[Rfam]
RNA: SAM riboswitch aptamer (S box leader)
Nucleotides: 099
Stems, first nucleotide, its partner, number of pairs: 003097006013041001015040003021031003025075004042067004047063002049060004071091001076088004
Number, partner (000 for none) and nucleotide at each position: 001000c002000u003097c004096u005095u006094a007093u008092c009000a010000a011000g012000a013041g014000u015040g016039g017038u018000g019000g020000a021031g022030g023029g024000a025075c026074u027073g028072g029023c030022c031021c032000u033000a034000u035000g036000a037000a038017a039016c040015c041013c042067g043066g044065c045064a046000a047063c048062c049060u050059g051058a052057u053000a054000u055000u056000u057052a058051u059050c060049a061000a062048g063047g064045u065044g066043c067042u068000a069000a070000u071091u072028c073027c074026a075025g076088c077087g078086a079085c080000u081000u082000u083000a084000u085079g086078u087077u088076g089000a090000u091071a092008g093007a094006u095005g096004a097003g098000u099000a